[Rfam]
Nucleotides: 128
Base pairs, nucleotide, nucleotide: 002059003058004057005056006055007054014047015046016045017044018043019042020041021040023039027036072121073120074119075118076117079114080113081112082111087106088105089104091102092101093100094099
Number, partner (000 for none) and nucleotide at each position: 001000u002059g003058g004057u005056c006055a007054u008000u009000u010000c011000a012000a013000a014047g015046a016045g017044g018043g019042c020041u021040c022000a023039u024000g025000g026000a027036g028000u029000u030000g031000u032000g033000a034000a035000a036027c037000c038000a039023a040021g041020a042019g043018c044017u045016c046015u047014u048000a049000a050000c051000g052000c053000u054007g055006u056005g057004a058003c059002c060000a061000a062000a063000u064000a065000u066000u067000g068000a069000a070000g071000u072121u073120c074119u075118c076117u077000g078000c079114a080113g081112g082111a083000u084000g085000c086000u087106g088105u089104a090000a091102c092101a093100c094099u095000a096000a097000a098000u099094a100093g101092u102091g103000c104089u105088a106087u107000g108000u109000u110000u111082u112081c113080c114079u115000g116000a117076g118075g119074a120073g121072a122000g123000g124000u125000a126000c127000a128000a
A member of the RNA family "Small nucleolar RNA SNORA25" from Microcebus murinus, 128 nucleotides long. NCBI's taxonomy places the organism under Eukaryota, Tetrapoda, Lemuriformes, Cheirogaleidae, Microcebus. ACA25 is a member of the H/ACA class of snoRNA that guide the sites of modification of uridines to pseudouridines.